The family of this 100-nucleotide sequence from Amborella trichopoda is "MIR319 microRNA precursor family".
Rfam links the family to the GO terms miRNA-mediated post-transcriptional gene silencing and RISC complex.
The family's consensus secondary structure was predicted with RNAalifold.
Rfam 15.1 lists 168 matches to the family in 79 species.
[Rfam]
RNA sequence: CAGAAAUGGGGGCUCCUUUGAGGACAAAGAACGCAUUUCAGAUCGUCUUUUUGCUCAUUGAAGCAGUCAUCCUUUGGUCUAAAGGAAGCUCCAAAUUCCU
Numbered sequence: 001c002a003g004a005a006a007u008g009g010g011g012g013c014u015c016c017u018u019u020g021a022g023g024a025c026a027a028a029g030a031a032c033g034c035a036u037u038u039c040a041g042a043u044c045g046u047c048u049u050u051u052u053g054c055u056c057a058u059u060g061a062a063g064c065a066g067u068c069a070u071c072c073u074u075u076g077g078u079c080u081a082a083a084g085g086a087a088g089c090u091c092c093a094a095a096u097u098c099c100u
Stems, first nucleotide, its partner, number of pairs: 007094001009092006016085003022080002025077001027075003